The family of this 115-nucleotide sequence is "TPP riboswitch aptamer (THI element)".
Pairs were carried over by alignment from the consensus structure, which is taken from published work.
Rfam links the family to the GO term thiamine pyrophosphate binding.
It scores 65 bits against the family's covariance model.
RNA sequence: GGUCGACGCUAGGGGUGUCCCGGGGAUGCGGUCAAACGUAUCUCCAUUGGACUGAGAAAUACUCUUUGCACCUGAUCAGGGUAAUGCCUGCGAAGGGAAGCGUCGACCAGUUUUG
Numbered sequence: 001g002g003u004c005g006a007c008g009c010u011a012g013g014g015g016u017g018u019c020c021c022g023g024g025g026a027u028g029c030g031g032u033c034a035a036a037c038g039u040a041u042c043u044c045c046a047u048u049g050g051a052c053u054g055a056g057a058a059a060u061a062c063u064c065u066u067u068g069c070a071c072c073u074g075a076u077c078a079g080g081g082u083a084a085u086g087c088c089u090g091c092g093a094a095g096g097g098a099a100g101c102g103u104c105g106a107c108c109a110g111u112u113u114u115g
Stems, first nucleotide, its partner, number of pairs: 006103005011065004016059001017052004071096003077090004